Record summary
A member of the RNA family "Fluoride riboswitch aptamer (crcB RNA motif)" from Mucilaginibacter sp. MD40, 65 nucleotides long. The source organism's lineage runs through Bacteria, Pseudomonadati, Bacteroidota, Sphingobacteriaceae and Mucilaginibacter. A search with the family's covariance model found it, with a score of 58 bits.
RNA sequence: UUCACAAAAGGCAAUGGUGUUCUGCCUAUUUGAACCGCUGCAAAGCUGAUGACGCCUACUCAAAU
Numbered sequence: 001u002u003c004a005c006a007a008a009a010g011g012c013a014a015u016g017g018u019g020u021u022c023u024g025c026c027u028a029u030u031u032g033a034a035c036c037g038c039u040g041c042a043a044a045g046c047u048g049a050u051g052a053c054g055c056c057u058a059c060u061c062a063a064a065u
Stems, first nucleotide, its partner, number of pairs: 010026004016056006037046003